The record is a 182-nucleotide RNA sequence from Cytobacillus depressus, which matches "6S / SsrS RNA" in Rfam. Rfam classes the family as a non-coding RNA gene.
[Rfam]
RNA sequence: CAAAUGCUGCGUUGUACGCUUGGAUAUGAAGUUUCAACCUUUAUUUUUGAUUAGGGAGUUCAAUACCAUUACUAAAACAACAAGCCUUCUCUGAAAGGACGUUUGUGCAGGUAAUUGCGGACACCCACCUGUAGGAGCAGGUAUGAAACUCCAUAUAAAUCGGCGGCAAAGGCGGCUGUACA
Numbered sequence: 001c002a003a004a005u006g007c008u009g010c011g012u013u014g015u016a017c018g019c020u021u022g023g024a025u026a027u028g029a030a031g032u033u034u035c036a037a038c039c040u041u042u043a044u045u046u047u048u049g050a051u052u053a054g055g056g057a058g059u060u061c062a063a064u065a066c067c068a069u070u071a072c073u074a075a076a077a078c079a080a081c082a083a084g085c086c087u088u089c090u091c092u093g094a095a096a097g098g099a100c101g102u103u104u105g106u107g108c109a110g111g112u113a114a115u116u117g118c119g120g121a122c123a124c125c126c127a128c129c130u131g132u133a134g135g136a137g138c139a140g141g142u143a144u145g146a147a148a149c150u151c152c153a154u155a156u157a158a159a160u161c162g163g164c165g166g167c168a169a170a171g172g173c174g175g176c177u178g179u180a181c182a
Stems, first nucleotide, its partner, number of pairs: 003179001006176005012169004017165003030150007037142003054126003058122004065116001068115006079104002085098004